[Rfam]
RNA sequence: CCCUUGUGCAUUGUUGUUGCAUUGCAUGUCACCUUGAAUUUUGUGCAAUGUUUCUUCAGUGCAGUAAGG
Number, nucleotide and partner (000 for none) at each position: 001c069002c068003c000004u066005u000006g065007u063008g062009c061010a060011u059012u058013g057014u000015u000016g054017u000018u000019g051020c000021a049022u048023u047024g046025c045026a044027u043028g000029u000030c000031a000032c000033c000034u000035u000036g000037a000038a000039u000040u000041u000042u000043g027044u026045g025046c024047a023048a022049u021050g000051u019052u000053u000054c016055u000056u000057c013058a012059g011060u010061g009062c008063a007064g000065u006066a004067a000068g002069g001
This 69-nucleotide RNA sequence from Xenopus laevis belongs to the Rfam family "mir-33 microRNA precursor family". Its family is annotated with gene silencing by miRNA and RISC complex in the Gene Ontology.